The record is a 495-nucleotide RNA sequence from Rhizoctonia solani, which matches "RNase MRP" in Rfam.
A search with the family's covariance model found it, with a score of 102 bits.
[Rfam]
RNA sequence: GCACCAUCCAGAGAAUCGCUGUCGCAGCUCACGCACUGAAAGCCUAUGUGCUUUCUCACCUUUUGCUGUGGGGAAAGUCCCCGGAGACCGCGCAGAGCCGCUCGUCAAAGGCCGGAGUCCAGCUCGUCACACUUGGAGGAAAGCGCCUAUCCCGAGGCACGAUAGGAAGUGUGAUCUCUGUGCCCGAGAUGGGUGCAUAGGCGUCACUUGUUAUAUCACUUGCGAAGCGGUGCAUGUGACUCGAAAGACGUGCUCUGCCCCCCGCGCAUGCUGGGUAUCCCGGCAGUCUCUCUUUCACUCCGUAAAGUCCGAACAUGGCAUUAUGCGCAGGCGAAGAUAGGAGCCGUGUGGAGCCGUGUGGGAUGGGGUGGGAUAGAGCUGUCUGGAGAGUAGUUGCCGGAACCAUGUUGCUCAUAGCCGAUAGUUAUGCGAUUGCGUCUAUGCUGGCCUCGGCCAGUACGGUCGUAACUCAAUGGGGCUCAUUCCUGAAUGGUG
Numbered sequence: 001g002c003a004c005c006a007u008c009c010a011g012a013g014a015a016u017c018g019c020u021g022u023c024g025c026a027g028c029u030c031a032c033g034c035a036c037u038g039a040a041a042g043c044c045u046a047u048g049u050g051c052u053u054u055c056u057c058a059c060c061u062u063u064u065g066c067u068g069u070g071g072g073g074a075a076a077g078u079c080c081c082c083g084g085a086g087a088c089c090g091c092g093c094a095g096a097g098c099c100g101c102u103c104g105u106c107a108a109a110g111g112c113c114g115g116a117g118u119c120c121a122g123c124u125c126g127u128c129a130c131a132c133u134u135g136g137a138g139g140a141a142a143g144c145g146c147c148u149a150u151c152c153c154g155a156g157g158c159a160c161g162a163u164a165g166g167a168a169g170u171g172u173g174a175u176c177u178c179u180g181u182g183c184c185c186g187a188g189a190u191g192g193g194u195g196c197a198u199a200g201g202c203g204u205c206a207c208u209u210g211u212u213a214u215a216u217c218a219c220u221u222g223c224g225a226a227g228c229g230g231u232g233c234a235u236g237u238g239a240c241u242c243g244a245a246a247g248a249c250g251u252g253c254u255c256u257g258c259c260c261c262c263c264g265c266g267c268a269u270g271c272u273g274g275g276u277a278u279c280c281c282g283g284c285a286g287u288c289u290c291u292c293u294u295u296c297a298c299u300c301c302g303u304a305a306a307g308u309c310c311g312a313a314c315a316u317g318g319c320a321u322u323a324u325g326c327g328c329a330g331g332c333g334a335a336g337a338u339a340g341g342a343g344c345c346g347u348g349u350g351g352a353g354c355c356g357u358g359u360g361g362g363a364u365g366g367g368g369u370g371g372g373a374u375a376g377a378g379c380u381g382u383c384u385g386g387a388g389a390g391u392a393g394u395u396g397c398c399g400g401a402a403c404c405a406u407g408u409u410g411c412u413c414a415u416a417g418c419c420g421a422u423a424g425u426u427a428u429g430c431g432a433u434u435g436c437g438u439c440u441a442u443g444c445u446g447g448c449c450u451c452g453g454c455c456a457g458u459a460c461g462g463u464c465g466u467a468a469c470u471c472a473a474u475g476g477g478g479c480u481c482a483u484u485c486c487u488g489a490a491u492g493g494u495g
Base pairs, nucleotide, nucleotide: 002495003494004493005492006491007490009488010487011486014434015433016432017431018430019429022071023070024069025068026067027066028065038055039054040053041052042051043050076480077479079478080477081476082475260275261274262273264271265270280400281399282398283397284396285395290390291389292388300386301385302384372379436465437464439462440461